RNA sequence: GCUGCCGCCGGACGGGGCGGGUCAUGAGGGUUGGGGAACCCGGUGAGGGGCCUGCUUGCGAGAGCCGCCAGGGUCUAAGGGAGCCCUGGUGGGUCGUUUCGGCGAAGGGG
Numbered sequence: 001g002c003u004g005c006c007g008c009c010g011g012a013c014g015g016g017g018c019g020g021g022u023c024a025u026g027a028g029g030g031u032u033g034g035g036g037a038a039c040c041c042g043g044u045g046a047g048g049g050g051c052c053u054g055c056u057u058g059c060g061a062g063a064g065c066c067g068c069c070a071g072g073g074u075c076u077a078a079g080g081g082a083g084c085c086c087u088g089g090u091g092g093g094u095c096g097u098u099u100c101g102g103c104g105a106a107g108g109g110g
Stems, first nucleotide, its partner, number of pairs: 006104007013060002016057001018054006028041005062095002065092003070087005
The family of this 110-nucleotide RNA is "Actinomyces-1 RNA".
The base pairs follow the family's consensus structure, which is taken from published work.
The family's RNA type in Rfam is small RNA.